[Rfam]
RNA sequence: GCCUUAAACUAAUGAGUAAGGAAAAUACCGCACCGGUUGACACCGGUGUUAUGGCGUGAACCGCGUUCACGUCGGCUUCCAAUUUCUGGCGGGCUACAGGCCUCGGCCCUCUUGUAGUGACCUGCGCCUACUUUCGCGCGGGAUGCUCGAGUUGGCUGGCCU
Numbered sequence: 001g002c003c004u005u006a007a008a009c010u011a012a013u014g015a016g017u018a019a020g021g022a023a024a025a026u027a028c029c030g031c032a033c034c035g036g037u038u039g040a041c042a043c044c045g046g047u048g049u050u051a052u053g054g055c056g057u058g059a060a061c062c063g064c065g066u067u068c069a070c071g072u073c074g075g076c077u078u079c080c081a082a083u084u085u086c087u088g089g090c091g092g093g094c095u096a097c098a099g100g101c102c103u104c105g106g107c108c109c110u111c112u113u114g115u116a117g118u119g120a121c122c123u124g125c126g127c128c129u130a131c132u133u134u135c136g137c138g139c140g141g142g143a144u145g146c147u148c149g150a151g152u153u154g155g156c157u158g159g160c161c162u
Base pairs, nucleotide, nucleotide: 002021003020004019005018006017030049031048032047033046034045035044036043055071056070057069058068059067098162099161100160101159102158105157106156107155108154111151113149114148117146118145119144121142123140124139125138126137127136